The family of this 198-nucleotide sequence from Caviibacterium pharyngocola is "GcvB RNA". It scores 124 bits against the family's covariance model. NCBI's taxonomy places the organism under Bacteria, Pseudomonadota, Gammaproteobacteria, Pasteurellaceae, Caviibacterium. Its family is annotated with mRNA binding and regulation of gene expression in the Gene Ontology. By type it is a non-coding RNA gene. Rfam describes the family as follows. The gcvB gene encodes a small untranslated RNA involved in expression of the dipeptide and oligopeptide transport systems in Escherichia coli. Included several unknown homologues in alignment (Bateman A pers obs). It base-pairs with SorC. This interaction triggers the degradation of GcvB by RNase E, alleviating the GcvB-mediated mRNA repression of other amino acid-related transport and metabolic genes.
[Rfam]
RNA sequence: UCACUACAAUACGCCCAUACUUAAUGAUUGGUAAUUCCUUACUGGUUAAGAGUUUCGGACUUAAGUAUGAUGUUGUGUUUGCAUAUUGUUCGGGAAACCGAACGGAGUAACCUUAAUUAGGUUACUUAUUUCACUUCCUGUAUAUUUUUAAACCCUAUUUAGGUUAUUCGCGCCGCUCCUCUUGAGCGGCGUUUUUUU
Dot-bracket structure: ........(..(..(.......(.((((((((((....))))))))))....)...))..)........................((((((((....))))))))((((((((.....)))))))).................(.(...................).)..((((((((.....)))))))).......